[Rfam]
RNA sequence: GGCUGGUCUGAGUGCAGUGGUGUUUACAAUUAAUUGAUCACACAGUUAUAGAUUUAUUUAUUCCUUGUCCAUUCCCAUUGCUUCACUUGACAGGCCUAAA
Numbered sequence: 001g002g003c004u005g006g007u008c009u010g011a012g013u014g015c016a017g018u019g020g021u022g023u024u025u026a027c028a029a030u031u032a033a034u035u036g037a038u039c040a041c042a043c044a045g046u047u048a049u050a051g052a053u054u055u056a057u058u059u060a061u062u063c064c065u066u067g068u069c070c071a072u073u074c075c076c077a078u079u080g081c082u083u084c085a086c087u088u089g090a091c092a093g094g095c096c097u098a099a100a
Stems, first nucleotide, its partner, number of pairs: 001096004006091003010088002014084001016079005022074001028062003032058002
RNA: Y RNA